[Rfam]
RNA sequence: AUUCUCUGGUUCCUCUUGAUAUUGAAUGAAUAUUUUGCUUUUUACUAAAAAUUUCCAAUGAGGGAAAUAACUUCGAGUCUUACGUUAAUUGUUUGAGGCCUUGCUUUAAGGAUGCU
Numbered sequence: 001a002u003u004c005u006c007u008g009g010u011u012c013c014u015c016u017u018g019a020u021a022u023u024g025a026a027u028g029a030a031u032a033u034u035u036u037g038c039u040u041u042u043u044a045c046u047a048a049a050a051a052u053u054u055c056c057a058a059u060g061a062g063g064g065a066a067a068u069a070a071c072u073u074c075g076a077g078u079c080u081u082a083c084g085u086u087a088a089u090u091g092u093u094u095g096a097g098g099c100c101u102u103g104c105u106u107u108a109a110g111g112a113u114g115c116u
Base pairs, nucleotide, nucleotide: 004077005076006075009068010067011066013064014063015062016061017060018059028054029053030052031051033049034048035047096116098115099114101112102111